The family of this 131-nucleotide RNA from Silurus meridionalis is "U4atac minor spliceosomal RNA".
For this family Rfam cites "Computational screen for spliceosomal RNA genes aids in defining the phylogenetic distribution of major and minor spliceosomal components" (Davila Lopez et al., Nucleic Acids Res, 2008).
It is annotated as a spliceosomal small nuclear RNA.
The base pairs follow the family's consensus structure, which is taken from published work.
U4atac is an essential component of the minor U12-type spliceosome complex which is required for removal of the rarer class of eukaryotic introns (AT-AC, U12-type).
The match comes from Rfam's covariance-model search (90 bits).
Its Rfam clan is "U4 clan".
RNA sequence: ACCUUCCUUGUCUUGGGGUGGAUUGGGCUGUUCAAUGAACGUGUAGUGAGAACAUCCCUGCUAACACCAAACCAACACAUUUAGCAUCACCUGAGCGGUUUCGUUCAGGCUACGGUGCAAUUUUUGGAACC
Numbered sequence: 001a002c003c004u005u006c007c008u009u010g011u012c013u014u015g016g017g018g019u020g021g022a023u024u025g026g027g028c029u030g031u032u033c034a035a036u037g038a039a040c041g042u043g044u045a046g047u048g049a050g051a052a053c054a055u056c057c058c059u060g061c062u063a064a065c066a067c068c069a070a071a072c073c074a075a076c077a078c079a080u081u082u083a084g085c086a087u088c089a090c091c092u093g094a095g096c097g098g099u100u101u102c103g104u105u106c107a108g109g110c111u112a113c114g115g116u117g118c119a120a121u122u123u124u125u126g127g128a129a130c131c
Stems, first nucleotide, its partner, number of pairs: 006018004021061001023060001025058001027056001029054005039047002084118005091108006